[Rfam]
RNA sequence: CACUCCGAAGAGUGGUGGCACUGCCACCCGCCGAAGGAGCAAGCCCUGCAUCCGGGUGAAACUCUCAGGCCAGUGACGGAGGG
Numbered sequence: 001c002a003c004u005c006c007g008a009a010g011a012g013u014g015g016u017g018g019c020a021c022u023g024c025c026a027c028c029c030g031c032c033g034a035a036g037g038a039g040c041a042a043g044c045c046c047u048g049c050a051u052c053c054g055g056g057u058g059a060a061a062c063u064c065u066c067a068g069g070c071c072a073g074u075g076a077c078g079g080a081g082g083g
Base pairs, nucleotide, nucleotide: 001083003081004080005079006078007077014028015027016026017025030070031069032068033066034065037064038063039062043057044056045055046054
Dot-bracket structure: (.(((((......((((.......)))).(((((..(((...((((.......))))....))))).)))......))))).)